[Rfam]
RNA sequence: UACACGGCUCUUUUCAGAGCCACACAAUUAACCUUACGAAAGAAC
Numbered sequence: 001u002a003c004a005c006g007g008c009u010c011u012u013u014u015c016a017g018a019g020c021c022a023c024a025c026a027a028u029u030a031a032c033c034u035u036a037c038g039a040a041a042g043a044a045c
Base pairs, nucleotide, nucleotide: 006021007020008019009018010017011016

The family of this 45-nucleotide RNA sequence from Ursus maritimus is "Histone 3' UTR stem-loop".